[Rfam]
This 108-nucleotide sequence from Lachnospiraceae bacterium 9_1_43BFAA belongs to the Rfam family "TPP riboswitch aptamer (THI element)". Pairs were carried over by alignment from the consensus structure, which is taken from published work. The match comes from Rfam's covariance-model search (55 bits).
RNA sequence: GAAAAGAACAAGGGGAGCUUGCGAAAAGCAGGCUGAGAGUAAGCUGUAUGCUUAGACCCAUAACCUGAUUUGGAUAAUGCCAACGUAGGAAAAUACCCGGUAGAAGUU
Numbered sequence: 001g002a003a004a005a006g007a008a009c010a011a012g013g014g015g016a017g018c019u020u021g022c023g024a025a026a027a028g029c030a031g032g033c034u035g036a037g038a039g040u041a042a043g044c045u046g047u048a049u050g051c052u053u054a055g056a057c058c059c060a061u062a063a064c065c066u067g068a069u070u071u072g073g074a075u076a077a078u079g080c081c082a083a084c085g086u087a088g089g090a091a092a093a094u095a096c097c098c099g100g101u102a103g104a105a106g107u108u
Stems, first nucleotide, its partner, number of pairs: 006096001008094001012059003017033005040054005064089004070083004